[Rfam]
mir-9223 microRNA precursor family: a 75-nucleotide RNA sequence from Myotis lucifugus. Rfam 15.1 lists 14,641 matches to the family in 28 species. The source organism's lineage runs through Eukaryota, Teleostomi, Tetrapoda, Yangochiroptera and Myotis. The base pairs follow the family's consensus structure, which was predicted with RNAalifold. The match comes from Rfam's covariance-model search (65 bits).

RNA sequence: GGCAGUUCUCGAGUGAUGUCCCCUAGAAUUGGGCUCCCUCCUCCCUUGUUCCGGGUGCAUCACCCUAGAACAACA
Numbered sequence: 001g002g003c004a005g006u007u008c009u010c011g012a013g014u015g016a017u018g019u020c021c022c023c024u025a026g027a028a029u030u031g032g033g034c035u036c037c038c039u040c041c042u043c044c045c046u047u048g049u050u051c052c053g054g055g056u057g058c059a060u061c062a063c064c065c066u067a068g069a070a071c072a073a074c075a
Base pairs, nucleotide, nucleotide: 002074005071006070007069008068009067011065013063014062015061016060017059019057021055022054023053026051027050028049029048031046032045033044
Dot-bracket structure: .(..(((((.(.(((((.(.(((..((((.(((..........))).)))).))).).))))).).)))))..).